[Rfam]
RNA sequence: CGACUACAGCUCUCUGGAUUCACUCUGGCCUUUCAAUGCAUGUGUUAUCCUCAUCGGCUGUCGAAGAUC
Numbered sequence: 001c002g003a004c005u006a007c008a009g010c011u012c013u014c015u016g017g018a019u020u021c022a023c024u025c026u027g028g029c030c031u032u033u034c035a036a037u038g039c040a041u042g043u044g045u046u047a048u049c050c051u052c053a054u055c056g057g058c059u060g061u062c063g064a065a066g067a068u069c
Stems, first nucleotide, its partner, number of pairs: 004063001006061005016050003026040002
A member of the RNA family "Trypanosomatid snoRNA TB10Cs5H3" from Leptomonas pyrrhocoris, 69 nucleotides long. It scores 58 bits against the family's covariance model. It is annotated as an H/ACA-box small nucleolar RNA. Rfam links the family to the GO terms RNA processing and nucleolus. For this family Rfam cites "Psiscan: a computational approach to identify H/ACA-like and AGA-like non-coding RNA in trypanosomatid genomes" (Myslyuk et al., BMC Bioinformatics, 2008).